The family of this 242-nucleotide RNA sequence from Streptomyces sp. F-3 is "Streptomyces sRNA 4677".
The match comes from Rfam's covariance-model search (183 bits).
Rfam's curators write: Located in the intergenic region between anti-sigma factor SCO4677 gene and a putative regulatory protein gene SCO4676. scr4677 expression requires the SCO4677 activity and scr4677 sRNA itself seem to affect the levels of the SCO4676-associated transcripts.
It is annotated as a small RNA.
The literature on the family includes a 2014 paper in PLoS One by Hindra et al., "Complex intra-operonic dynamics mediated by a small RNA in Streptomyces coelicolor".
RNA sequence: GGUUCCGGUGCGCCCAGCUCCUUUUUCCAAGGAAUGUGAGGAGAAAGAACCCCACCAAGCCCCACCCCUCCCGCCCAUGGUUCACGCUCACUCGGGCGGGUGAACAUCUCCGGCUCGGCUGGCUUUUCGGCCCCUCGCUCCCCCUACGCUCAGCGCAAACGACCGCGCAUAUGCAUCGGCCCCCGGCCGGGAGUCACGAUCCCGAACGAGGGCCUGACCACCAAGGAAGAAGGGGCUUCCCG
Numbered sequence: 001g002g003u004u005c006c007g008g009u010g011c012g013c014c015c016a017g018c019u020c021c022u023u024u025u026u027c028c029a030a031g032g033a034a035u036g037u038g039a040g041g042a043g044a045a046a047g048a049a050c051c052c053c054a055c056c057a058a059g060c061c062c063c064a065c066c067c068c069u070c071c072c073g074c075c076c077a078u079g080g081u082u083c084a085c086g087c088u089c090a091c092u093c094g095g096g097c098g099g100g101u102g103a104a105c106a107u108c109u110c111c112g113g114c115u116c117g118g119c120u121g122g123c124u125u126u127u128c129g130g131c132c133c134c135u136c137g138c139u140c141c142c143c144c145u146a147c148g149c150u151c152a153g154c155g156c157a158a159a160c161g162a163c164c165g166c167g168c169a170u171a172u173g174c175a176u177c178g179g180c181c182c183c184c185g186g187c188c189g190g191g192a193g194u195c196a197c198g199a200u201c202c203c204g205a206a207c208g209a210g211g212g213c214c215u216g217a218c219c220a221c222c223a224a225g226g227a228a229g230a231a232g233g234g235g236c237u238u239c240c241c242g
Base pairs, nucleotide, nucleotide: 007222008221009220010219017074018073088103089102090101091100092099093098118154119153120152121151122150178214179213180212181211182210184208185207189203190202191201192200225240226239227238228237229236